[Rfam]
RNA sequence: AAGUGGUACAAUACCUCAGUGUUUUCAGAUGUUCUAUAAAUUCACCUGGAAAUACUGAGGUUGAGUUUCACUG
Numbered sequence: 001a002a003g004u005g006g007u008a009c010a011a012u013a014c015c016u017c018a019g020u021g022u023u024u025u026c027a028g029a030u031g032u033u034c035u036a037u038a039a040a041u042u043c044a045c046c047u048g049g050a051a052a053u054a055c056u057g058a059g060g061u062u063g064a065g066u067u068u069c070a071c072u073g
Stems, first nucleotide, its partner, number of pairs: 003071004008066002013061008022052002025049004030044002
Background:
Rfam assigns this 73-nucleotide RNA from Smithornis capensis to the family "mir-875 microRNA precursor family". Rfam 15.1 lists 202 matches to the family in 202 species. It scores 86 bits against the family's covariance model.